The family of this 87-nucleotide RNA from Streptomyces sp. YIM 130001 is "Streptomyces RNA 6106".
Rfam classes the family as a small RNA.
The base pairs follow the family's consensus structure.
Identified by deep sequencing of transcriptome at the end of exponential growth phase. Appears smaller on northern blot than sequencing transcript. This indicates processing step.
Taxonomically the source falls in Streptomyces (Bacteria, Actinomycetota, Actinomycetes, Kitasatosporales).

Nucleotides: 087
Base pairs, nucleotide, nucleotide: 001017002016003015004014005013006012007011018044019043020042021041022040024037025036026035047084048083049082050081051080052079053078054077055076056075057074058073059072061070062069063068
Number, partner (000 for none) and nucleotide at each position: 001017g002016c003015g004014c005013c006012g007011c008000u009000g010000u011007g012006c013005g014004g015003c016002g017001c018044u019043c020042a021041u022040g023000u024037u025036c026035c027000u028000g029000u030000u031000c032000u033000a034000c035026g036025g037024g038000g039000c040022c041021a042020u043019g044018g045000g046000g047084g048083c049082g050081g051080g052079g053078g054077u055076g056075g057074u058073g059072c060000c061070g062069u063068g064000u065000c066000g067000g068063c069062g070061c071000a072059g073058c074057a075056c076055c077054a078053c079052c080051u081050c082049c083048g084047c085000g086000u087000c